[Rfam]
RNA sequence: UUACCUGGAGAGGGCUAUCUAUGACGUUAAGAUAGCAGUCAGCAGAGGUCAUAGUAGGCUAAGAGUAGCACCUUAGUUCAAAGGAC
Numbered sequence: 001u002u003a004c005c006u007g008g009a010g011a012g013g014g015c016u017a018u019c020u021a022u023g024a025c026g027u028u029a030a031g032a033u034a035g036c037a038g039u040c041a042g043c044a045g046a047g048g049u050c051a052u053a054g055u056a057g058g059c060u061a062a063g064a065g066u067a068g069c070a071c072c073u074u075a076g077u078u079c080a081a082a083g084g085a086c
Base pairs, nucleotide, nucleotide: 001026004023006021007020008019009018011016039046040045048086049085050084057079058077059076060075061074062073